[Rfam]
RNA sequence: CCGUGCUAGAUGGGGAGCUAGCGGUGCCCUGUACCUGCAAUCCGCUUUAGCAGGGUCGAAUUCCUCGCCUAGGCCUUAAUUCGUAGGGUCUGGCCCACAUAAGUGGUGUUGAGAGUUGGGUCCCACGCAACGAAAACCUAUGAACCCCGUCAGAUCCGGAAGGAAGCAGCGGUAAGUAGAUAUUUUCGUGUGCCGUGGAUCAAUCUGGCUUGAGCUAACUGUGUGGGUAACGCUUAUGAGUUAUUGUCGAAGCGAGGUGCACGG
Numbered sequence: 001c002c003g004u005g006c007u008a009g010a011u012g013g014g015g016a017g018c019u020a021g022c023g024g025u026g027c028c029c030u031g032u033a034c035c036u037g038c039a040a041u042c043c044g045c046u047u048u049a050g051c052a053g054g055g056u057c058g059a060a061u062u063c064c065u066c067g068c069c070u071a072g073g074c075c076u077u078a079a080u081u082c083g084u085a086g087g088g089u090c091u092g093g094c095c096c097a098c099a100u101a102a103g104u105g106g107u108g109u110u111g112a113g114a115g116u117u118g119g120g121u122c123c124c125a126c127g128c129a130a131c132g133a134a135a136a137c138c139u140a141u142g143a144a145c146c147c148c149g150u151c152a153g154a155u156c157c158g159g160a161a162g163g164a165a166g167c168a169g170c171g172g173u174a175a176g177u178a179g180a181u182a183u184u185u186u187c188g189u190g191u192g193c194c195g196u197g198g199a200u201c202a203a204u205c206u207g208g209c210u211u212g213a214g215c216u217a218a219c220u221g222u223g224u225g226g227g228u229a230a231c232g233c234u235u236a237u238g239a240g241u242u243a244u245u246g247u248c249g250a251a252g253c254g255a256g257g258u259g260c261a262c263g264g
Stems, first nucleotide, its partner, number of pairs: 001264006009057003012030004017025003034054005063257006072248003078242010091229002095226006103219002105216003113211009123198005128190002131188005136181001138179004147172004155164003
RNA: Bacterial large signal recognition particle RNA
Organism: Clostridium frigidicarnis